Record summary:
Potassium channel RNA editing signal: a 114-nucleotide RNA from Clupea harengus. Rfam links the family to the GO term adenosine to inosine editing. Rfam 15.1 lists 14,095 matches to the family in 1,000 species. NCBI's taxonomy places the organism under Eukaryota, Metazoa, Gnathostomata, Teleostomi, Clupea.
RNA sequence: GUGGGCUAUGGAGACAUGUGCCCUGUCACUUUGGGAGGAAAACUAGUAGGAUCCAUGUGUGCCAUUGCUGGUGUGCUAACUAUUGCACUGCCCGUACCUGUCAUCGUAUCGAAU
Numbered sequence: 001g002u003g004g005g006c007u008a009u010g011g012a013g014a015c016a017u018g019u020g021c022c023c024u025g026u027c028a029c030u031u032u033g034g035g036a037g038g039a040a041a042a043c044u045a046g047u048a049g050g051a052u053c054c055a056u057g058u059g060u061g062c063c064a065u066u067g068c069u070g071g072u073g074u075g076c077u078a079a080c081u082a083u084u085g086c087a088c089u090g091c092c093c094g095u096a097c098c099u100g101u102c103a104u105c106g107u108a109u110c111g112a113a114u
Stems, first nucleotide, its partner, number of pairs: 001114002005110001007108005013102004018097004037077002040074001049063002